[Rfam]
About this RNA
A member of the RNA family "freshwater-2 RNA", 80 nucleotides long. It is one of the family's seed sequences. The base pairs follow the family's consensus structure, which is taken from published work. By type it is a cis-regulatory element.
RNA sequence: ACUCUUAAUACUGAGAGUUUAUGCAGUAACCCACUGCGUAGCGGCUAGAACCCGCGUUUAACAUAAAGGAAAAACAAAUG
Numbered sequence: 001a002c003u004c005u006u007a008a009u010a011c012u013g014a015g016a017g018u019u020u021a022u023g024c025a026g027u028a029a030c031c032c033a034c035u036g037c038g039u040a041g042c043g044g045c046u047a048g049a050a051c052c053c054g055c056g057u058u059u060a061a062c063a064u065a066a067a068g069g070a071a072a073a074a075c076a077a078a079u080g
Stems, first nucleotide, its partner, number of pairs: 001018006020040007041055004